RNA: Small nucleolar RNA SNORA32
Organism: Ornithorhynchus anatinus
RNA sequence: UGGUCAUUACCAAGGCUAUUAGAAGCACAGUUUCUGAUUUGCUGUGGACAUGACCGUAGAAUAACUCUCUCGGUUUUAAAUGGCUAUAUUAUUAGCACAAACCUGGAGAGACAUGC
Numbered sequence: 001u002g003g004u005c006a007u008u009a010c011c012a013a014g015g016c017u018a019u020u021a022g023a024a025g026c027a028c029a030g031u032u033u034c035u036g037a038u039u040u041g042c043u044g045u046g047g048a049c050a051u052g053a054c055c056g057u058a059g060a061a062u063a064a065c066u067c068u069c070u071c072g073g074u075u076u077u078a079a080a081u082g083g084c085u086a087u088a089u090u091a092u093u094a095g096c097a098c099a100a101a102c103c104u105g106g107a108g109a110g111a112c113a114u115g116c
Stems, first nucleotide, its partner, number of pairs: 003054005010047003028041003068109004072103004083096002